The family of this 370-nucleotide RNA sequence from Rattus norvegicus is "ncRNA Repressor of NFAT (nuclear factor of activated T cells)".
Taxonomically the source falls in Rattus (Eukaryota, Opisthokonta, Metazoa, Craniata).
[Rfam]
RNA sequence: GGGAGAAAACGACAUCAGGAACUUUGAAACUUUCCUUUGUCUGUAACAUUAAUCCAUAUAAGAAAAUCUCCUUUAAUGAGGAGUGAUGUAGUCACAAACUCUCCAGAGCCAUAAUUAGAGCAAACUAAUUGAAGUUGUGUUUUGACACACUUUCCAAAUUCACGGGUGCCGGAUGACAUAUUCACAACACUGGUGCCGCACAGCCAUGGCGACGGCGGAAUCAUUAGGCUAAUAACGCUUAUUUGCAUUCUUCUCAUGCCACCAGCUCUCCCUUAAAUGCUGUUUCUACCACUGCUCCUUUACUGUGACUUUCCACGGGACGGUAUUAACAGUAAUUAUUAGCGCUUUAGUGGAAUUUUAAUGUUAAGAA
Numbered sequence: 001g002g003g004a005g006a007a008a009a010c011g012a013c014a015u016c017a018g019g020a021a022c023u024u025u026g027a028a029a030c031u032u033u034c035c036u037u038u039g040u041c042u043g044u045a046a047c048a049u050u051a052a053u054c055c056a057u058a059u060a061a062g063a064a065a066a067u068c069u070c071c072u073u074u075a076a077u078g079a080g081g082a083g084u085g086a087u088g089u090a091g092u093c094a095c096a097a098a099c100u101c102u103c104c105a106g107a108g109c110c111a112u113a114a115u116u117a118g119a120g121c122a123a124a125c126u127a128a129u130u131g132a133a134g135u136u137g138u139g140u141u142u143u144g145a146c147a148c149a150c151u152u153u154c155c156a157a158a159u160u161c162a163c164g165g166g167u168g169c170c171g172g173a174u175g176a177c178a179u180a181u182u183c184a185c186a187a188c189a190c191u192g193g194u195g196c197c198g199c200a201c202a203g204c205c206a207u208g209g210c211g212a213c214g215g216c217g218g219a220a221u222c223a224u225u226a227g228g229c230u231a232a233u234a235a236c237g238c239u240u241a242u243u244u245g246c247a248u249u250c251u252u253c254u255c256a257u258g259c260c261a262c263c264a265g266c267u268c269u270c271c272c273u274u275a276a277a278u279g280c281u282g283u284u285u286c287u288a289c290c291a292c293u294g295c296u297c298c299u300u301u302a303c304u305g306u307g308a309c310u311u312u313c314c315a316c317g318g319g320a321c322g323g324u325a326u327u328a329a330c331a332g333u334a335a336u337u338a339u340u341a342g343c344g345c346u347u348u349a350g351u352g353g354a355a356u357u358u359u360a361a362u363g364u365u366a367a368g369a370a
Stems, first nucleotide, its partner, number of pairs: 047363005053354005060347003068083006088339005094333002099108003118297005131153004136149005164272003168266002194211005214260004228246002231243004